The family of this 82-nucleotide RNA from Ixodes scapularis is "mir-252 microRNA precursor family". Rfam links the family to the GO terms RISC complex and miRNA-mediated post-transcriptional gene silencing. Its Rfam clan is "mir-252 microRNA precursor family".

RNA sequence: UUAUGCCUCCAAGCACUGAUGCCGCAUGUGAUGACGUACAUCUUCGUACCACCACAUGCAACGUCAGUGCUUAGAGGCAUAA
Numbered sequence: 001u002u003a004u005g006c007c008u009c010c011a012a013g014c015a016c017u018g019a020u021g022c023c024g025c026a027u028g029u030g031a032u033g034a035c036g037u038a039c040a041u042c043u044u045c046g047u048a049c050c051a052c053c054a055c056a057u058g059c060a061a062c063g064u065c066a067g068u069g070c071u072u073a074g075a076g077g078c079a080u081a082a
Base pairs, nucleotide, nucleotide: 001082002081003080004079005078006077007076011072012071013070014069015068016067017066018065019064024059025058026057027056028055029054030053